[Rfam]
RNA: Streptomyces RNA 5676
RNA sequence: AGAUGAGAGAAACACCUCGCUCACGGGGGACCGUGGGCGACGCCGGGACGGAGCCUCCCCAGCCUCGCCCUGGUCGUGCCCUCGCGCACACACCCGGAGCUUCCGGCUCCGGAACUCCUCACCGAUCGGA
Numbered sequence: 001a002g003a004u005g006a007g008a009g010a011a012a013c014a015c016c017u018c019g020c021u022c023a024c025g026g027g028g029g030a031c032c033g034u035g036g037g038c039g040a041c042g043c044c045g046g047g048a049c050g051g052a053g054c055c056u057c058c059c060c061a062g063c064c065u066c067g068c069c070c071u072g073g074u075c076g077u078g079c080c081c082u083c084g085c086g087c088a089c090a091c092a093c094c095c096g097g098a099g100c101u102u103c104c105g106g107c108u109c110c111g112g113a114a115c116u117c118c119u120c121a122c123c124g125a126u127c128g129g130a
Base pairs, nucleotide, nucleotide: 004121005120006119007118009117010116017040018039019038020037021036022035023034024033025032026031042074043073044072045071046070047069049067050066051065053063054062076089077088078087079086094112095111096110097109098108099107100106122129123128